[Rfam]
RNA: Metazoan signal recognition particle RNA
Organism: Jimgerdemannia flammicorona
RNA sequence: GUCGGUGAGAGUUGCUCCUCACUGUAAGCCAAGCAUAUGGGUGAUAGAAUGCUGGAUGCAUCCAUUAUGGAUCUUCAGCUGUUCGGCAUCCAUGUCGAGGACCAUGUCCUUUGGAGCCUGGUGUCGGCAUUCCGGUUCCCGAGUAGUUAUGGGCUGAGAGGCCAUUAAAUAUGGGGGUAUUGGCCGAGGGCAGAAAUACAGCAGGCAAAACUCUGAGCACUAGUGUGGCUAGAGGGUGGCAUAUCUGAGUGGUCUUGUCGGGCAGUUGCCAUGGUGUGGUGUGGACUCAUAU
Numbered sequence: 001g002u003c004g005g006u007g008a009g010a011g012u013u014g015c016u017c018c019u020c021a022c023u024g025u026a027a028g029c030c031a032a033g034c035a036u037a038u039g040g041g042u043g044a045u046a047g048a049a050u051g052c053u054g055g056a057u058g059c060a061u062c063c064a065u066u067a068u069g070g071a072u073c074u075u076c077a078g079c080u081g082u083u084c085g086g087c088a089u090c091c092a093u094g095u096c097g098a099g100g101a102c103c104a105u106g107u108c109c110u111u112u113g114g115a116g117c118c119u120g121g122u123g124u125c126g127g128c129a130u131u132c133c134g135g136u137u138c139c140c141g142a143g144u145a146g147u148u149a150u151g152g153g154c155u156g157a158g159a160g161g162c163c164a165u166u167a168a169a170u171a172u173g174g175g176g177g178u179a180u181u182g183g184c185c186g187a188g189g190g191c192a193g194a195a196a197u198a199c200a201g202c203a204g205g206c207a208a209a210a211c212u213c214u215g216a217g218c219a220c221u222a223g224u225g226u227g228g229c230u231a232g233a234g235g236g237u238g239g240c241a242u243a244u245c246u247g248a249g250u251g252g253u254c255u256u257g258u259c260g261g262g263c264a265g266u267u268g269c270c271a272u273g274g275u276g277u278g279g280u281g282u283g284g285a286c287u288c289a290u291a292u
Base pairs, nucleotide, nucleotide: 001045002044003043004023005022006021007020008019009018011016028042029041030040049292050291051288057283058282059281060280061279062278063276064275065274066273067272068271069270070269076268077267078266079265080264081263082262083261084260085259086258087257088256090252091251092250093249095247099246100245101244104242105241106240107239108235109234110233111232112231113230114229116226117225118223119222120221121220122219123218124217126163127162128161130159131158133156134155135154136153137152138151141148142147165169172215173214174213175212176211181208183206184205185204190199192197
Dot-bracket structure: (((((((((.(....).))))))....(((.........))))))...(((.....((((((((((((((.....(((((((((((((.((((.(...(((..(((((((((((.(((((((((.(((.((.((((((..((....))..)))))).)).))).(...)..(((((....(.(((....(.(....).)....))).)..))))).))))))).))..)))))))...)))).)))).))))...))))))))))))))))))))).))))))....)..))